Rfam assigns this 47-nucleotide RNA from Streptomyces griseoflavus to the family "L31-Actinobacteria ribosomal protein leader".
RNA sequence: UCGGCCCCGGUUCACGCUCCCGCACCGAGCGGUGGCGACCCGGAGCC
Dot-bracket structure: ..(((.((((....((((.((((.....)))).))))..)))).)))

A reference for the family is Eckert and Weinberg (2020), "Discovery of 20 novel ribosomal leader candidates in bacteria and archaea", BMC Microbiol.
The family's RNA type in Rfam is cis-regulatory leader.